The record is a 119-nucleotide RNA from Mus spicilegus, which matches "Small nucleolar RNA SNORA32" in Rfam. Rfam classes the family as an H/ACA-box small nucleolar RNA. Rfam's curators write: ACA32 is a member of the H/ACA class of snoRNA that guide the sites of modification of uridines to pseudouridines. Lineage of the source: Eukaryota > Chordata > Sarcopterygii > Amniota > Mus.
[Rfam]
RNA sequence: AGGUCAUCCCCAAGGUUUGGGAACUCUUUCUCAAUUGUGGUGGACAUCACCAUGAAAAAAAAUUUCCCACUGGGUUUCUGCCUGGUACCUUUCUAACAAUUGGCCUAUUGAGAGCAUUC
Numbered sequence: 001a002g003g004u005c006a007u008c009c010c011c012a013a014g015g016u017u018u019g020g021g022a023a024c025u026c027u028u029u030c031u032c033a034a035u036u037g038u039g040g041u042g043g044a045c046a047u048c049a050c051c052a053u054g055a056a057a058a059a060a061a062a063u064u065u066c067c068c069a070c071u072g073g074g075u076u077u078c079u080g081c082c083u084g085g086u087a088c089c090u091u092u093c094u095a096a097c098a099a100u101u102g103g104c105c106u107a108u109u110g111a112g113a114g115c116a117u118u119c
Stems, first nucleotide, its partner, number of pairs: 003050002006047002010043003023038002066112001068110002073105004083098002